The record is an 87-nucleotide RNA sequence from Lactuca sativa, which matches "Small nucleolar RNA R12" in Rfam.
RNA sequence: AUGAGUAUGACGAAAAAUUUGACGGAUUGUCAAUGAUUUUCUCCUCAGGAGAACAAGUGAUCAUACAACCAGCUACUUCUGACUCAU
Numbered sequence: 001a002u003g004a005g006u007a008u009g010a011c012g013a014a015a016a017a018u019u020u021g022a023c024g025g026a027u028u029g030u031c032a033a034u035g036a037u038u039u040u041c042u043c044c045u046c047a048g049g050a051g052a053a054c055a056a057g058u059g060a061u062c063a064u065a066c067a068a069c070c071a072g073c074u075a076c077u078u079c080u081g082a083c084u085c086a087u
Base pairs, nucleotide, nucleotide: 001087002086003085004084005083